[Rfam]
Nucleotides: 124
Stems, first nucleotide, its partner, number of pairs: 004121001006119005017029003031104002033094002035049004044092002052070003074090005096107003
Number, partner (000 for none) and nucleotide at each position: 001000u002000a003000g004121g005000a006119u007118c008117u009116u010115c011000a012000g013000g014000g015000c016000a017029g018028g019027g020000u021000g022000a023000a024000a025000u026000u027019c028018c029017c030000g031104a032103c033094c034093g035049g036048u037047g038046g039000u040000u041000a042000a043000a044092g045091u046038c047037c048036a049035c050000g051000a052070g053069c054068c055000g056000c057000a058000u059000g060000u061000u062000c063000c064000a065000u066000g067000g068054g069053g070052u071000u072000g073000a074090c075089u076088u077087g078086g079000u080000g081000a082000a083000a084000u085000u086078c087077c088076a089075a090074g091045a092044c093034c094033g095000a096107c097106a098105g099000u100000a101000u102000a103032g104031u105098c106097u107096g108000g109000a110000u111000g112000g113000a114000a115010g116009a117008a118007g119006a120000a121004c122000a123000a124000a